[Rfam]
This 109-nucleotide RNA from Striga hermonthica belongs to the Rfam family "Small nucleolar RNA Z279/snoR105/snoR108".
Lineage of the source: Eukaryota > Streptophytina > Euphyllophyta > Spermatophyta > Striga.
The family is grouped with related families in Rfam's "snoU13 clan".
Pairs were carried over by alignment from the consensus structure, which was predicted with PFOLD.
The match comes from Rfam's covariance-model search (68 bits).
This family includes the plant snoRNAs known as Z279, snoR105 and snoR108.
RNA sequence: GGGAUGUGAUGAGUGGUAUGUACUCGCAAAAUUAGAAAAAUGCGAGAAGGGUUGCCCGCCCUGCCUGGUUACGACAAUAGGGCACUCCCAUCUUCACCUUUCUGAUCCC
Numbered sequence: 001g002g003g004a005u006g007u008g009a010u011g012a013g014u015g016g017u018a019u020g021u022a023c024u025c026g027c028a029a030a031a032u033u034a035g036a037a038a039a040a041u042g043c044g045a046g047a048a049g050g051g052u053u054g055c056c057c058g059c060c061c062u063g064c065c066u067g068g069u070u071a072c073g074a075c076a077a078u079a080g081g082g083c084a085c086u087c088c089c090a091u092c093u094u095c096a097c098c099u100u101u102c103u104g105a106u107c108c109c
Stems, first nucleotide, its partner, number of pairs: 001109004015098003023046005049087003053084004066080001068078002